[Rfam]
The family of this 72-nucleotide sequence from Myotis brandtii is "mir-9193 microRNA precursor family". Lineage of the source: Eukaryota > Gnathostomata > Eutheria > Vespertilionidae > Myotis. It scores 74 bits against the family's covariance model. Gene Ontology terms of the family: RISC complex and miRNA-mediated post-transcriptional gene silencing.
RNA sequence: CACGGGUGGGGGGUCCCUCAGCCUGGAUUGUGAGAGGGUGCAGGCCAGGCAGAGGGACCCCACUGGUGCAGG
Numbered sequence: 001c002a003c004g005g006g007u008g009g010g011g012g013g014u015c016c017c018u019c020a021g022c023c024u025g026g027a028u029u030g031u032g033a034g035a036g037g038g039u040g041c042a043g044g045c046c047a048g049g050c051a052g053a054g055g056g057a058c059c060c061c062a063c064u065g066g067u068g069c070a071g072g
Stems, first nucleotide, its partner, number of pairs: 004069001006067001008063001010061010021050003025046002028043005